Rfam assigns this 145-nucleotide RNA sequence from Durio zibethinus to the family "Small nucleolar RNA U19". The source organism's lineage runs through Eukaryota, eudicotyledons, malvids, Malvales and Durio. Rfam classes the family as an H/ACA-box small nucleolar RNA.
RNA sequence: AUUUGGUUUAGUUAGGAGGCGGAAAUCAACUCGAAAACCAGAGAUAUCGGUUCAGAUAUUUUUGGCCAUUUCAACUCAGGCCUAUUGAGGGGACUCUUUGCUUUUCUUUCUUCGUUAAUUUUCCCCCAAUCAGCCUUGGACAUUU
Number, nucleotide and partner (000 for none) at each position: 001a000002u000003u000004u021005g020006g000007u018008u017009u016010a000011g000012u000013u000014a000015g000016g009017a008018g007019g000020c005021g004022g000023a000024a000025a000026u000027c000028a000029a000030c000031u000032c000033g000034a000035a000036a000037a000038c064039c000040a062041g000042a000043g000044a059045u058046a057047u056048c055049g000050g000051u000052u000053c000054a000055g048056a047057u046058a045059u044060u000061u000062u040063u000064g038065g000066c000067c000068a000069u000070u000071u000072c000073a000074a000075c139076u138077c000078a136079g135080g134081c133082c000083u000084a130085u129086u128087g127088a000089g126090g125091g124092g123093a122094c000095u000096c000097u118098u000099u000100g000101c000102u000103u000104u000105u000106c000107u000108u000109u000110c000111u000112u000113c000114g000115u000116u000117a000118a097119u000120u000121u000122u093123c092124c091125c090126c089127c087128a086129a085130u084131c000132a000133g081134c080135c079136u078137u000138g076139g075140a000141c000142a000143u000144u000145u000